RNA sequence: ACAACAAAAACAAUAAAAUCAGUACCACCCAAUAAAAACAACAUGUAACGACUCUGGCAUAACAAGAACAAUCGCGGCAGAGGCGAAGCUAACAGAUUUUUUUGGAGAGGACGCGCCACCGGGGCUUGCCCCACACCGUACACAGAACAACAAAACUGCCCCGAGGCAGCGACGUACCGGUGACAGGCGAAUCAGCGCUCAAAAAAAUACGUUUGCUCUUGACCCAGGAUGUGGGUCACACGAAACGCGGUAAAGGGUCACGGUCGCCAAAAACAACAACAGGCCGCCCCUCAAUAAUAAAAAAAGAGCAAGCAACAAGACCUUGAGGGGAGCUUCGGCUCCCCUCAGUGCUUUCUGCGAUUCCCCUGUCCUUUUGUCACU
Dot-bracket structure: ................................................((.((((.......................)))).))..............(((((.........(((.................(((((.................(((((....)))))........)))))............)))..))))).................(((((.....)))))..................(((((.((((..................))))...................((((................((((((((....))))))))....)))).....)))))..................